[Rfam]
RNA sequence: CUUCACGAGAUGCGCGCCGCCCUCCGGCUAGGAGGGCAUUUGCUCCGACAUGGCCGCACACCAACCCCAACCUCAUGGGUGGUUCGGAUGACGAAGCGGCCCGUCUCCAACCGGAGCAGGCAAGAGCGCCCG
Numbered sequence: 001c002u003u004c005a006c007g008a009g010a011u012g013c014g015c016g017c018c019g020c021c022c023u024c025c026g027g028c029u030a031g032g033a034g035g036g037c038a039u040u041u042g043c044u045c046c047g048a049c050a051u052g053g054c055c056g057c058a059c060a061c062c063a064a065c066c067c068c069a070a071c072c073u074c075a076u077g078g079g080u081g082g083u084u085c086g087g088a089u090g091a092c093g094a095a096g097c098g099g100c101c102c103g104u105c106u107c108c109a110a111c112c113g114g115a116g117c118a119g120g121c122a123a124g125a126g127c128g129c130c131c132g
Stems, first nucleotide, its partner, number of pairs: 001096004009059001011058004060083003065079003099121003103117001105116004

SAM (S-adenosyl methionine) riboswitch aptamer: a 132-nucleotide RNA from Arthrobacter sp. CAU 1506. A search with the family's covariance model found it, with a score of 44 bits. The source organism's lineage runs through Bacteria, Actinomycetota, Actinomycetes, Micrococcaceae and Arthrobacter. The family has 40 seed sequences and 2,360 matches in Rfam 15.1.